Shown here is a 96-nucleotide RNA from Mobilitalea sibirica, a member of the family "Glycine riboswitch aptamer". A reference for the family is Mandal et al. (2004), "A glycine-dependent riboswitch that uses cooperative binding to control gene expression", Science. Lineage of the source: Bacteria > Bacillota > Lachnospirales > Lachnospiraceae > Mobilitalea.
RNA sequence: AUGAAGAAUUUGGGAGAGACUGUAGAAAUAAUAUAUUAUGCUACAGCGCCGAAGGGGAAUGCGAAAACUCUCAGGCAAAAGGACCAGAUUUGGACG
Number, nucleotide and partner (000 for none) at each position: 001a000002u000003g000004a000005a000006g091007a090008a089009u088010u087011u086012g085013g084014g000015a000016g000017a000018g000019a000020c046021u045022g044023u043024a042025g041026a000027a000028a000029u000030a000031a000032u000033a000034u000035a000036u000037u000038a000039u000040g000041c025042u024043a023044c022045a021046g020047c000048g076049c075050c074051g072052a071053a000054g000055g070056g069057g068058a000059a000060u000061g000062c000063g000064a000065a000066a000067a000068c057069u056070c055071u052072c051073a000074g050075g049076c048077a000078a000079a000080a000081g000082g000083a000084c013085c012086a011087g010088a009089u008090u007091u006092g000093g000094a000095c000096g000